[Rfam]
RNA sequence: UACUGACAUUAAGGAUUCAUUAUUUGAACCAGCACCUACCGCUAAAUAAGCGUUCAUACCUAAUUGUUUCAUUUGUUGCUCACCAAUUAUAUGAGUAAUCAUAUUUUUAUUGAAAAUAUCAGCUAAUUGACGAGAUUGUGAUGCUAGAUACAUAGCGUUACAUAGAUUAGGUGGCAUAUUACUAAGAUCUUUUGC
Numbered sequence: 001u002a003c004u005g006a007c008a009u010u011a012a013g014g015a016u017u018c019a020u021u022a023u024u025u026g027a028a029c030c031a032g033c034a035c036c037u038a039c040c041g042c043u044a045a046a047u048a049a050g051c052g053u054u055c056a057u058a059c060c061u062a063a064u065u066g067u068u069u070c071a072u073u074u075g076u077u078g079c080u081c082a083c084c085a086a087u088u089a090u091a092u093g094a095g096u097a098a099u100c101a102u103a104u105u106u107u108u109a110u111u112g113a114a115a116a117u118a119u120c121a122g123c124u125a126a127u128u129g130a131c132g133a134g135a136u137u138g139u140g141a142u143g144c145u146a147g148a149u150a151c152a153u154a155g156c157g158u159u160a161c162a163u164a165g166a167u168u169a170g171g172u173g174g175c176a177u178a179u180u181a182c183u184a185a186g187a188u189c190u191u192u193u194g195c
Stems, first nucleotide, its partner, number of pairs: 005189002014030001016028004035041001050059001062077003079134003084129004092122001095119003099112001101110003137162002140159006167186002170183003
Shown here is a 195-nucleotide sequence from Pantoea sp. Mhis, a member of the family "Yersinia sRNA 276". The literature on the family includes a 2015 paper in PLoS Genet by Nuss et al., "Transcriptomic profiling of Yersinia pseudotuberculosis reveals reprogramming of the Crp regulon by temperature and uncovers Crp as a master regulator of small RNAs". The organism belongs to Pantoea, within Bacteria.